[Rfam]
A member of the RNA family "Small nucleolar RNA snoR26" from Lactuca saligna, 90 nucleotides long. The literature on the family includes a 2001 paper in RNA by Brown et al., "Multiple snoRNA gene clusters from Arabidopsis". Taxonomically the source falls in Lactuca (Eukaryota, Streptophyta, Asterales, Cichorioideae).
RNA sequence: UUAGCAUCGAUGAUGAUAAUCAGACUUGGUCAUCCUUGCACUUUGAUUCAUAAUGAAGAAAACAAGGAGGAAAAUAUUUUUGCGAUGCGU
Numbered sequence: 001u002u003a004g005c006a007u008c009g010a011u012g013a014u015g016a017u018a019a020u021c022a023g024a025c026u027u028g029g030u031c032a033u034c035c036u037u038g039c040a041c042u043u044u045g046a047u048u049c050a051u052a053a054u055g056a057a058g059a060a061a062a063c064a065a066g067g068a069g070g071a072a073a074a075u076a077u078u079u080u081u082g083c084g085a086u087g088c089g090u
Stems, first nucleotide, its partner, number of pairs: 004088005